Shown here is a 72-nucleotide RNA sequence from Medicago truncatula, a member of the family "MIR2629 microRNA precursor family". The match comes from Rfam's covariance-model search (64 bits). Rfam links the family to the GO terms miRNA-mediated post-transcriptional gene silencing and RISC complex.
RNA sequence: UGCUGAGGAAAACUUCGGCAGUUAACUACAGCCGUAUUUCUAAAACUUCGGCAGUUAACUGCCGAGGAACAU
Numbered sequence: 001u002g003c004u005g006a007g008g009a010a011a012a013c014u015u016c017g018g019c020a021g022u023u024a025a026c027u028a029c030a031g032c033c034g035u036a037u038u039u040c041u042a043a044a045a046c047u048u049c050g051g052c053a054g055u056u057a058a059c060u061g062c063c064g065a066g067g068a069a070c071a072u
Stems, first nucleotide, its partner, number of pairs: 013067001015065013029051001
NCBI's taxonomy places the organism under Eukaryota, Viridiplantae, rosids, Trifolieae, Medicago.